The family of this 88-nucleotide RNA sequence from Neorhizobium lilium is "Glycine riboswitch aptamer".
RNA sequence: UCAUACCCGAUGGGAGAAGCCGCUUCGAUGCGGUGCCGAAGGAGCAACCGCCCCGGAAACUCUCAGGCAAAAGGACCAACGGGUAACC
Numbered sequence: 001u002c003a004u005a006c007c008c009g010a011u012g013g014g015a016g017a018a019g020c021c022g023c024u025u026c027g028a029u030g031c032g033g034u035g036c037c038g039a040a041g042g043a044g045c046a047a048c049c050g051c052c053c054c055g056g057a058a059a060c061u062c063u064c065a066g067g068c069a070a071a072a073g074g075a076c077c078a079a080c081g082g083g084u085a086a087c088c
Stems, first nucleotide, its partner, number of pairs: 006083004011078003020033004035068003038064002042062003048056002

It scores 65 bits against the family's covariance model.